Notes:
Rfam assigns this 181-nucleotide sequence from Streptomyces candidus to the family "c-di-AMP riboswitch aptamer (ydaO/yuaA leader)".
RNA sequence: CGGGUAACCGCACCCAUCUUUCUUCGUGUGGCAGGAGCGGGGGACCCAGGUAGUACGCCGGCGCCGGAGGACGAGAGUCCGCCGGACCGGCUAGGGGUUAAGCCGCGCUCGACAAGAGCGCGGCCGGGCAUCUCCAGCCCGAACCCGACAGCUCACCCCGUAGGCGCCGGAGAGGAAAAUC
Dot-bracket structure: (................................)..((((((....(..............................................)(((.....((((((.........))))))..((((.......))))...))).........))))))....................
Numbered sequence: 001c002g003g004g005u006a007a008c009c010g011c012a013c014c015c016a017u018c019u020u021u022c023u024u025c026g027u028g029u030g031g032c033a034g035g036a037g038c039g040g041g042g043g044a045c046c047c048a049g050g051u052a053g054u055a056c057g058c059c060g061g062c063g064c065c066g067g068a069g070g071a072c073g074a075g076a077g078u079c080c081g082c083c084g085g086a087c088c089g090g091c092u093a094g095g096g097g098u099u100a101a102g103c104c105g106c107g108c109u110c111g112a113c114a115a116g117a118g119c120g121c122g123g124c125c126g127g128g129c130a131u132c133u134c135c136a137g138c139c140c141g142a143a144c145c146c147g148a149c150a151g152c153u154c155a156c157c158c159c160g161u162a163g164g165c166g167c168c169g170g171a172g173a174g175g176a177a178a179a180u181c
Stems, first nucleotide, its partner, number of pairs: 001034001037161006047094001095146003103123006126140004
A search with the family's covariance model found it, with a score of 55 bits. For this family Rfam cites "New RNA motifs suggest an expanded scope for riboswitches in bacterial genetic control" (Barrick et al., Proc Natl Acad Sci U S A, 2004).